[Rfam]
RNA: Mason-Pfizer monkey virus packaging signal
RNA sequence: UGGCGCCCAACGUGAGAGCUCAAGUACGAGGGACACAGUGAGGGACGCCGUCGAGGUCAGCUGGCACGGAAGGAUUAAGAAACCCAGAGGAAAGCAUCAUGGGAACCUGCCAAGGACUCGCACUCUGGUAAGCAGAUGGCGAAUAUGGGACAGGAAAUCAGCCAGCAUGAGUUGUUCAUAGAGAGUUUAAGUAAGGCUUUAAAGGUGCGGGGAGUAAAGGUGAAAAUAAAACGAUUGUGUAAAUAUUUUGACUAUAUUCAGGAUGUCUGCCCUU
Numbered sequence: 001u002g003g004c005g006c007c008c009a010a011c012g013u014g015a016g017a018g019c020u021c022a023a024g025u026a027c028g029a030g031g032g033a034c035a036c037a038g039u040g041a042g043g044g045a046c047g048c049c050g051u052c053g054a055g056g057u058c059a060g061c062u063g064g065c066a067c068g069g070a071a072g073g074a075u076u077a078a079g080a081a082a083c084c085c086a087g088a089g090g091a092a093a094g095c096a097u098c099a100u101g102g103g104a105a106c107c108u109g110c111c112a113a114g115g116a117c118u119c120g121c122a123c124u125c126u127g128g129u130a131a132g133c134a135g136a137u138g139g140c141g142a143a144u145a146u147g148g149g150a151c152a153g154g155a156a157a158u159c160a161g162c163c164a165g166c167a168u169g170a171g172u173u174g175u176u177c178a179u180a181g182a183g184a185g186u187u188u189a190a191g192u193a194a195g196g197c198u199u200u201a202a203a204g205g206u207g208c209g210g211g212g213a214g215u216a217a218a219g220g221u222g223a224a225a226a227u228a229a230a231a232c233g234a235u236u237g238u239g240u241a242a243a244u245a246u247u248u249u250g251a252c253u254a255u256a257u258u259c260a261g262g263a264u265g266u267c268u269g270c271c272c273u274u
Stems, first nucleotide, its partner, number of pairs: 006032003012027003038046002082129003088124001094118001098114001100112003133153001135151001140147002158201001160199001161197003208250005214244002218236002221233002260273003264269001